[Rfam]
ffh sRNA: a 52-nucleotide RNA from Frigidibacter albus. It is annotated as a small RNA. NCBI's taxonomy places the organism under Bacteria, Pseudomonadati, Alphaproteobacteria, Paracoccaceae, Frigidibacter.

RNA sequence: UCAUGGGGGGAUCGCCAUCCGUCAGCGCGUUGCGCCCACGGGUGUCCUUCCG
Numbered sequence: 001u002c003a004u005g006g007g008g009g010g011a012u013c014g015c016c017a018u019c020c021g022u023c024a025g026c027g028c029g030u031u032g033c034g035c036c037c038a039c040g041g042g043u044g045u046c047c048u049u050c051c052g
Stems, first nucleotide, its partner, number of pairs: 016044007025035004